Shown here is an 81-nucleotide RNA from Anaeromicrobium sediminis, a member of the family "Glycine riboswitch aptamer". A search with the family's covariance model found it, with a score of 48 bits. Gene Ontology term of the family: glycine biosynthetic process.
RNA sequence: CUCUGGAAAGUUGGAUAGUUUCCACGCCGAAGGGGAAAUACACCAUAGGGUGUAGAAGCUCUCAGGUAAAAAAGGACAGAG
Numbered sequence: 001c002u003c004u005g006g007a008a009a010g011u012u013g014g015a016u017a018g019u020u021u022c023c024a025c026g027c028c029g030a031a032g033g034g035g036a037a038a039u040a041c042a043c044c045a046u047a048g049g050g051u052g053u054a055g056a057a058g059c060u061c062u063c064a065g066g067u068a069a070a071a072a073a074g075g076a077c078a079g080a081g
Stems, first nucleotide, its partner, number of pairs: 001081005012024004026067003029063002033061003039054004